[Rfam]
RNA: Lysine riboswitch aptamer
Organism: Halanaerobium hydrogeniformans
RNA sequence: GGAUGGGGUAGAGGCGCGAAUUAUAAAUUAGUAACUUAAAGUUUAAUUUAAGCUUAAGAUUUUAAGUGAAAGGUUUAUUCGCCGAAGUGGUUAAUUGAGCUUAAGCAUUUAACUGCUGGGUCUGUAUAAAAUAUGUACAGAACUGUCAUUAAAAGUUUAAUCCAGACUUUUAGUGUUGAGCUAUCUCAAAA
Numbered sequence: 001g002g003a004u005g006g007g008g009u010a011g012a013g014g015c016g017c018g019a020a021u022u023a024u025a026a027a028u029u030a031g032u033a034a035c036u037u038a039a040a041g042u043u044u045a046a047u048u049u050a051a052g053c054u055u056a057a058g059a060u061u062u063u064a065a066g067u068g069a070a071a072g073g074u075u076u077a078u079u080c081g082c083c084g085a086a087g088u089g090g091u092u093a094a095u096u097g098a099g100c101u102u103a104a105g106c107a108u109u110u111a112a113c114u115g116c117u118g119g120g121u122c123u124g125u126a127u128a129a130a131a132u133a134u135g136u137a138c139a140g141a142a143c144u145g146u147c148a149u150u151a152a153a154a155g156u157u158u159a160a161u162c163c164a165g166a167c168u169u170u171u172a173g174u175g176u177u178g179a180g181c182u183a184u185c186u187c188a189a190a191a
Base pairs, nucleotide, nucleotide: 006186007185008184009183010182011181016082017081018080019079020078021077023075034067035066036065037064038063039062040061041060086117087116088115089114090113091112092111093110094109096107097106118144119143121141122140123139124138125137126136127135128134147175148174149173150172151171152170153169154168155167156166
Dot-bracket structure: .....((((((....((((((.(..........((((((((..................)))))))).......).))))))...(((((((((.((........)).)))))))))((.((((((((.....)))))))).))..((((((((((.........)))))))))).....)))))).....